[Rfam]
RNA: ASpks TB sRNA
Organism: Actinacidiphila oryziradicis
RNA sequence: CUUCAACGACCCGAGCCACAGCGGAUUGCUUGUCUCGCGGUCCUGGCCGUAGGUGGCCAGCAACGCCUGCGCCUC
Numbered sequence: 001c002u003u004c005a006a007c008g009a010c011c012c013g014a015g016c017c018a019c020a021g022c023g024g025a026u027u028g029c030u031u032g033u034c035u036c037g038c039g040g041u042c043c044u045g046g047c048c049g050u051a052g053g054u055g056g057c058c059a060g061c062a063a064c065g066c067c068u069g070c071g072c073c074u075c
Stems, first nucleotide, its partner, number of pairs: 014026001016024002031071003038065002043060003047056003